[Rfam]
RNA sequence: UUUGCAGUGGCAAAUCAGUACGACCAGCUCCUGCUGAACUCCCCCAGGACCGGAAGGUAGCAAGGGUAAGCGGUUGUAGCGGUGCGAUACUUGAUUUGCCUUUUU
Numbered sequence: 001u002u003u004g005c006a007g008u009g010g011c012a013a014a015u016c017a018g019u020a021c022g023a024c025c026a027g028c029u030c031c032u033g034c035u036g037a038a039c040u041c042c043c044c045c046a047g048g049a050c051c052g053g054a055a056g057g058u059a060g061c062a063a064g065g066g067u068a069a070g071c072g073g074u075u076g077u078a079g080c081g082g083u084g085c086g087a088u089a090c091u092u093g094a095u096u097u098g099c100c101u102u103u104u105u
Base pairs, nucleotide, nucleotide: 009100010099011098012097013096014095015094017091018090019089020088021086022085023083024082

This 105-nucleotide RNA sequence from Fulvivirga lutea belongs to the Rfam family "Bacteroidales small SRP". By type it is a non-coding RNA gene. Gene Ontology terms of the family: signal recognition particle, plasma membrane targeting and SRP-dependent cotranslational protein targeting to membrane, signal sequence recognition. It scores 79 bits against the family's covariance model. Clan: SRP clan. The organism belongs to Fulvivirga, within Bacteria.